The family of this 299-nucleotide RNA sequence from Serratia sp. DD3 is "Soft rot Enterobacteriaceae Rev 39 5'UTR". From the family's description: From bacteria cultured under starvation conditions. The organism belongs to Serratia, within Bacteria. Rfam classes the family as a cis-regulatory element.
RNA sequence: AAAAGUUGCCAUUUCACUCGUGACUGUGAUAACUCUGUAUACAUUGGUUCAAGAUGAAUACAGUGAACAACUCGAUUAUGAAAGCCCUAGCCCAAGUGAUUAGCCUAGUCGUGAUUAGUGUGGUGGUGAUUAUUAUCCCACCGUGCGGGGCGGCACUUGGACGAAGAAAGGCUUAGCAAACAAGCCGGAAUCGCAAGAUAACCCCCGUACCCAAAAGUUCGGGGGUUUUUUUAUGCCGAAAGAAAAGGACAUAAGGAGCAGAGGAUGAGUCACAGAAUAAACUGCACUUCCCACAGCAA
Numbered sequence: 001a002a003a004a005g006u007u008g009c010c011a012u013u014u015c016a017c018u019c020g021u022g023a024c025u026g027u028g029a030u031a032a033c034u035c036u037g038u039a040u041a042c043a044u045u046g047g048u049u050c051a052a053g054a055u056g057a058a059u060a061c062a063g064u065g066a067a068c069a070a071c072u073c074g075a076u077u078a079u080g081a082a083a084g085c086c087c088u089a090g091c092c093c094a095a096g097u098g099a100u101u102a103g104c105c106u107a108g109u110c111g112u113g114a115u116u117a118g119u120g121u122g123g124u125g126g127u128g129a130u131u132a133u134u135a136u137c138c139c140a141c142c143g144u145g146c147g148g149g150g151c152g153g154c155a156c157u158u159g160g161a162c163g164a165a166g167a168a169a170g171g172c173u174u175a176g177c178a179a180a181c182a183a184g185c186c187g188g189a190a191u192c193g194c195a196a197g198a199u200a201a202c203c204c205c206c207g208u209a210c211c212c213a214a215a216a217g218u219u220c221g222g223g224g225g226u227u228u229u230u231u232u233a234u235g236c237c238g239a240a241a242g243a244a245a246a247g248g249a250c251a252u253a254a255g256g257a258g259c260a261g262a263g264g265a266u267g268a269g270u271c272a273c274a275g276a277a278u279a280a281a282c283u284g285c286a287c288u289u290c291c292c293a294c295a296g297c298a299a
Stems, first nucleotide, its partner, number of pairs: 005033004010028003015022002037076002041072001044067002047064002086256003090250001091248002100240002103236002106233003110120003122142005128137003143162002146159004163192002170186005196229002200227008209219001211217001258285004266274002

Gene Ontology term of the family: cellular response to starvation.